[Rfam]
RNA sequence: AUGAUCCCCGGCGGAGGUCCCGCAAUCUGGGUAAGGUCAUCGAUACCCUAACUUGCGGCUUCGCCGACCUCAUGGGAUAC
Numbered sequence: 001a002u003g004a005u006c007c008c009c010g011g012c013g014g015a016g017g018u019c020c021c022g023c024a025a026u027c028u029g030g031g032u033a034a035g036g037u038c039a040u041c042g043a044u045a046c047c048c049u050a051a052c053u054u055g056c057g058g059c060u061u062c063g064c065c066g067a068c069c070u071c072a073u074g075g076g077a078u079a080c
Stems, first nucleotide, its partner, number of pairs: 003080001004078005009066005015061005021055002029048005036041001